[Rfam]
The family of this 76-nucleotide RNA from Dipodomys ordii is "Mammalian CPEB3 ribozyme". The family has 14 seed sequences and 5,706 matches in Rfam 15.1. The base pairs follow the family's consensus structure, which is taken from published work. Rfam links the family to the GO term RNA nuclease activity. It scores 65 bits against the family's covariance model.
Nucleotides: 076
Base pairs, nucleotide, nucleotide: 012043014041015040016039021074022073023072024071025070026038027037028036048065049064050063051062052061053060054059
Number, partner (000 for none) and nucleotide at each position: 001000a002000c003000a004000g005000g006000a007000a008000a009000a010000c011000a012043g013000a014041g015040c016039c017000g018000u019000u020000a021074c022073a023072g024071a025070a026038g027037u028036g029000u030000u031000c032000a033000u034000a035000u036028c037027a038026u039016g040015g041014u042000c043012c044000c045000u046000g047000u048065c049064a050063g051062a052061u053060u054059c055000u056000g057000g058000u059054g060053a061052a062051u063050c064049u065048g066000a067000a068000a069000a070025u071024u072023c073022u074021g075000c076000u